[Rfam]
RNA sequence: CGAGCCGCUGCUUGGGAGAGCGCCGGUUCGAGGCGAUCCGCGGAAGGUCUGGGAGGACCGGGGGCGGAUCCGAGAAGGGAGAACCACCGAUGCAGAAUACGCUUCUGGUCGGCUUGUCGCGGCAGGUCGUGCUCG
Numbered sequence: 001c002g003a004g005c006c007g008c009u010g011c012u013u014g015g016g017a018g019a020g021c022g023c024c025g026g027u028u029c030g031a032g033g034c035g036a037u038c039c040g041c042g043g044a045a046g047g048u049c050u051g052g053g054a055g056g057a058c059c060g061g062g063g064g065c066g067g068a069u070c071c072g073a074g075a076a077g078g079g080a081g082a083a084c085c086a087c088c089g090a091u092g093c094a095g096a097a098u099a100c101g102c103u104u105c106u107g108g109u110c111g112g113c114u115u116g117u118c119g120c121g122g123c124a125g126g127u128c129g130u131g132c133u134c135g
Stems, first nucleotide, its partner, number of pairs: 001030007010021004035070006046059005087112005093107005
Record summary: Rfam assigns this 135-nucleotide RNA from Rhodopseudomonas palustris to the family "flg-Rhizobiales RNA". Lineage of the source: Bacteria > Pseudomonadati > Alphaproteobacteria > Nitrobacteraceae > Rhodopseudomonas palustris. It is annotated as a cis-regulatory element. Rfam's curators put it in the seed alignment. The base pairs follow the family's consensus structure, which is taken from published work.